[Rfam]
Source information: The family of this 104-nucleotide sequence from Clostridium paridis is "Guanidine-I riboswitch aptamer". Lineage of the source: Bacteria > Bacillota > Clostridia > Clostridiaceae > Clostridium. This family represents a conserved RNA structure found upstream of the ykkC and yxkD genes in Bacillus subtilis and related genes in other bacteria.
RNA sequence: GAAAAAGUUUUCUAGGGUUCCGCAAAAAAAAGAAUUGGUCAGGUCCGAGAGAAAACGCACAAUUAUAAUUAUUGUGUACACGGAAGGAUAAAAGCCUGGGAGAU
Numbered sequence: 001g002a003a004a005a006a007g008u009u010u011u012c013u014a015g016g017g018u019u020c021c022g023c024a025a026a027a028a029a030a031a032g033a034a035u036u037g038g039u040c041a042g043g044u045c046c047g048a049g050a051g052a053a054a055a056c057g058c059a060c061a062a063u064u065a066u067a068a069u070u071a072u073u074g075u076g077u078a079c080a081c082g083g084a085a086g087g088a089u090a091a092a093a094g095c096c097u098g099g100g101a102g103a104u
Stems, first nucleotide, its partner, number of pairs: 007056006015046002020043002022040001023037003057077007079099001081102001085097003